[Rfam]
A member of the RNA family "Bacterial large subunit ribosomal RNA" from Pseudoxanthomonas suwonensis, 360 nucleotides of a longer RNA.
The family's consensus secondary structure is taken from published work.
A search with the family's covariance model found it, with a score of 2857 bits.
RNA sequence: UGAGAGAACUCGGGUGAAGGAACUAGGCAACAUGGCACCGUAACUUCGGGAGAAGGUGCGCCCUUUUUGGUGGCCCAUGCGGGCUAUAGCUGAAGAGGGCCGCAGUAACCAGGCCGCUGCGACUGUUUAUCAAAAACACAGCACUCUGCAAACACGAAAGUGGACGUAUAGGGUGUGACGCCUGCCCGGUGCCGGAAGGUUAAUUGAUGGGGUCAGCCGCAAGGCGAAGCUCUUGAUCGAAGCCCCGGUAAACGGCGGCCGUAACUAUAACGGUCCUAAGGUAGCGAAAUUCCUUGUCGGGUAAGUUCCGACCUGCACGAAUGGCGUAACGACAGCGGCGCUGUCUCCACCCGAGACUCA
Numbered sequence: 001u002g003a004g005a006g007a008a009c010u011c012g013g014g015u016g017a018a019g020g021a022a023c024u025a026g027g028c029a030a031c032a033u034g035g036c037a038c039c040g041u042a043a044c045u046u047c048g049g050g051a052g053a054a055g056g057u058g059c060g061c062c063c064u065u066u067u068u069g070g071u072g073g074c075c076c077a078u079g080c081g082g083g084c085u086a087u088a089g090c091u092g093a094a095g096a097g098g099g100c101c102g103c104a105g106u107a108a109c110c111a112g113g114c115c116g117c118u119g120c121g122a123c124u125g126u127u128u129a130u131c132a133a134a135a136a137c138a139c140a141g142c143a144c145u146c147u148g149c150a151a152a153c154a155c156g157a158a159a160g161u162g163g164a165c166g167u168a169u170a171g172g173g174u175g176u177g178a179c180g181c182c183u184g185c186c187c188g189g190u191g192c193c194g195g196a197a198g199g200u201u202a203a204u205u206g207a208u209g210g211g212g213u214c215a216g217c218c219g220c221a222a223g224g225c226g227a228a229g230c231u232c233u234u235g236a237u238c239g240a241a242g243c244c245c246c247g248g249u250a251a252a253c254g255g256c257g258g259c260c261g262u263a264a265c266u267a268u269a270a271c272g273g274u275c276c277u278a279a280g281g282u283a284g285c286g287a288a289a290u291u292c293c294u295u296g297u298c299g300g301g302u303a304a305g306u307u308c309c310g311a312c313c314u315g316c317a318c319g320a321a322u323g324g325c326g327u328a329a330c331g332a333c334a335g336c337g338g339c340g341c342u343g344u345c346u347c348c349a350c351c352c353g354a355g356a357c358u359c360a
Base pairs, nucleotide, nucleotide: 001360002359003358004357009355010354011353012352013351014350015349016348018346019345020344035059036058037057038056039055044049060100061099062098063097064096065095071086072085073084074083075082076081101105113339114338115337116336117335118334119333120331121330124138125137126136141176142175143174144173145172146171147170148169149166153162154161155160179326180325181324182323184256185255186254189253190252191249192248193247194246195245198244199243200242209233210232211231212230213229216225217224257275258274259273260272261271262270276280286313296312297311298310299309300308301307